Record summary
Glycine riboswitch aptamer: an 88-nucleotide RNA sequence from Nocardioides sp. HDW12B. The organism belongs to Nocardioides, within Bacteria. Gene Ontology term of the family: glycine biosynthetic process. This family represents the bacterial glycine riboswitch.
[Rfam]
Nucleotides: 088
Stems, first nucleotide, its partner, number of pairs: 007082007020031004033068003036064002040062003046056002
Number, partner (000 for none) and nucleotide at each position: 001000u002000g003000a004000a005000c006000a007082c008081g009080c010079g011078c012077g013076g014000g015000a016000g017000a018000g019000u020031c021030u022029c023028c024000c025000g026000a027000c028023g029022g030021a031020g032000c033068g034067c035066c036064g037063a038000a039000g040062g041061g042060g043000c044000a045000a046056u047055u048000c049000c050000u051000c052000c053000c054000c055047g056046g057000a058000a059000c060042c061041u062040c063037u064036c065000a066035g067034g068033c069000a070000c071000a072000c073000g074000g075000a076013c077012c078011g079010c080009g081008c082007g083000c084000a085000c086000g087000a088000g